[Rfam]
MIR2619 microRNA precursor family: a 171-nucleotide RNA from Medicago truncatula. Its family is annotated with miRNA-mediated post-transcriptional gene silencing and RISC complex in the Gene Ontology.

RNA sequence: AAACAGCCCCCUAUGUUUUGAUUCUUUGACAGUUUUGGCCCCCAAGGCAAAAAAAAAAAUAAAAAAAAUGACACGUGGCACCUCACUUAGGGUGUCACGUCAGCGUUGAUCGAGUCAACAAUGGACUGGGGGUUCAAAACUGUCAAAGAAUCAAAACAUAGUGGGUUAUUU
Numbered sequence: 001a002a003a004c005a006g007c008c009c010c011c012u013a014u015g016u017u018u019u020g021a022u023u024c025u026u027u028g029a030c031a032g033u034u035u036u037g038g039c040c041c042c043c044a045a046g047g048c049a050a051a052a053a054a055a056a057a058a059a060u061a062a063a064a065a066a067a068a069u070g071a072c073a074c075g076u077g078g079c080a081c082c083u084c085a086c087u088u089a090g091g092g093u094g095u096c097a098c099g100u101c102a103g104c105g106u107u108g109a110u111c112g113a114g115u116c117a118a119c120a121a122u123g124g125a126c127u128g129g130g131g132g133u134u135c136a137a138a139a140c141u142g143u144c145a146a147a148g149a150a151u152c153a154a155a156a157c158a159u160a161g162u163g164g165g166u167u168a169u170u171u
Stems, first nucleotide, its partner, number of pairs: 001171002005167004012160027040132004045127001073100002076097007